[Rfam]
Source information:
The family of this 79-nucleotide RNA sequence from Setaria italica is "Small nucleolar RNA Z155". The organism belongs to Setaria, within Eukaryota. The family's RNA type in Rfam is C/D-box small nucleolar RNA. Pairs were carried over by alignment from the consensus structure. It scores 74 bits against the family's covariance model.
Nucleotides: 079
Stems, first nucleotide, its partner, number of pairs: 001079006
Number, partner (000 for none) and nucleotide at each position: 001079g002078g003077u004076u005075g006074a007000u008000g009000u010000g011000a012000g013000g014000a015000u016000a017000a018000g019000c020000c021000u022000u023000c024000g025000c026000a027000g028000a029000a030000a031000c032000g033000c034000a035000u036000a037000g038000u039000u040000g041000u042000g043000u044000u045000g046000a047000c048000u049000c050000g051000a052000a053000a054000a055000u056000c057000a058000g059000a060000c061000u062000a063000c064000a065000a066000u067000u068000a069000u070000c071000u072000g073000a074006u075005c076004a077003a078002c079001u